[Rfam]
RNA sequence: CCUCGGGGACGACUCCGAAAGUCUGCUUUUUACUUGUGGGGACGACUCCG
Numbered sequence: 001c002c003u004c005g006g007g008g009a010c011g012a013c014u015c016c017g018a019a020a021g022u023c024u025g026c027u028u029u030u031u032a033c034u035u036g037u038g039g040g041g042a043c044g045a046c047u048c049c050g
Stems, first nucleotide, its partner, number of pairs: 003018006037050005
Rfam assigns this 50-nucleotide RNA from Phoenix dactylifera to the family "Guanidine-II riboswitch aptamer (mini-ykkC)". Lineage of the source: Eukaryota > Viridiplantae > Arecales > Arecaceae > Phoenix. Simpler in structure and has fewer highly conserved nucleotide positions than the ykkC-yxkD leader. Despite this each of its two stem-loop structures directly bind free guanidine. Therefore, mini-ykkC RNA motif represents a distinct class of guanidine-sensing RNAs. Its crystal structure was also determined.